[Rfam]
RNA sequence: UGUCCGCCAGAUGUUUCUGCCUUAAAGUAAGUGAAAGCAUACUGGCAAACCUACUUGAAAUGGGUGCAAAAAGAAAAUUAUGGUGGGCUUCGGGCCACAAACGCCUUGAGAUGAUGAUAACAGAGCGUUAAUGGUAAUC
Numbered sequence: 001u002g003u004c005c006g007c008c009a010g011a012u013g014u015u016u017c018u019g020c021c022u023u024a025a026a027g028u029a030a031g032u033g034a035a036a037g038c039a040u041a042c043u044g045g046c047a048a049a050c051c052u053a054c055u056u057g058a059a060a061u062g063g064g065u066g067c068a069a070a071a072a073g074a075a076a077a078u079u080a081u082g083g084u085g086g087g088c089u090u091c092g093g094g095c096c097a098c099a100a101a102c103g104c105c106u107u108g109a110g111a112u113g114a115u116g117a118u119a120a121c122a123g124a125g126c127g128u129u130a131a132u133g134g135u136a137a138u139c
Stems, first nucleotide, its partner, number of pairs: 006046005011040006017033001049065005083098004088093001100129005106123003
The family of this 139-nucleotide RNA sequence is "RAGATH-19 RNA". The family's consensus secondary structure is taken from published work. It is one of the family's seed sequences.